[Rfam]
RNA sequence: GCGCAGGCUUGGUCCAGUGGUUACUUCGUACCAUGCAGGUUAGAUCAUCUUCUCUACGGGGAAGACAACCACGGACGCUGUUCUGCGUUUUU
Numbered sequence: 001g002c003g004c005a006g007g008c009u010u011g012g013u014c015c016a017g018u019g020g021u022u023a024c025u026u027c028g029u030a031c032c033a034u035g036c037a038g039g040u041u042a043g044a045u046c047a048u049c050u051u052c053u054c055u056a057c058g059g060g061g062a063a064g065a066c067a068a069c070c071a072c073g074g075a076c077g078c079u080g081u082u083c084u085g086c087g088u089u090u091u092u
Stems, first nucleotide, its partner, number of pairs: 002087006012076004017072004026065002029062001